[Rfam]
RNA sequence: CACCGAAAAAGGCAAACCUGUCGAAAGGCGGGGACGCAAAGCCAACGAUCUAAGGUGGAGUUAUUCCACUAUGAUGGCCGGGUUACCGAA
Numbered sequence: 001c002a003c004c005g006a007a008a009a010a011g012g013c014a015a016a017c018c019u020g021u022c023g024a025a026a027g028g029c030g031g032g033g034a035c036g037c038a039a040a041g042c043c044a045a046c047g048a049u050c051u052a053a054g055g056u057g058g059a060g061u062u063a064u065u066c067c068a069c070u071a072u073g074a075u076g077g078c079c080g081g082g083u084u085a086c087c088g089a090a
Stems, first nucleotide, its partner, number of pairs: 012037002017032006040084004047078001048075003055069004
Overview: A member of the RNA family "c-di-GMP-I riboswitch aptamer" from Desulfocucumis palustris, 90 nucleotides long. Taxonomically the source falls in Desulfocucumis (Bacteria, Bacillota, Eubacteriales, Desulfocucumaceae). From the family's description: GEMM was predicted in a large-scale screen for bacterial structured RNA regulatory elements.